RNA sequence: CUUUUAGGAUAAGUAUGUCCUAUGCAGUAUUUGAGAUAUACUUAUACUAAAA
Numbered sequence: 001c002u003u004u005u006a007g008g009a010u011a012a013g014u015a016u017g018u019c020c021u022a023u024g025c026a027g028u029a030u031u032u033g034a035g036a037u038a039u040a041c042u043u044a045u046a047c048u049a050a051a052a
Stems, first nucleotide, its partner, number of pairs: 006048002009045004014040003018036002021033001022031001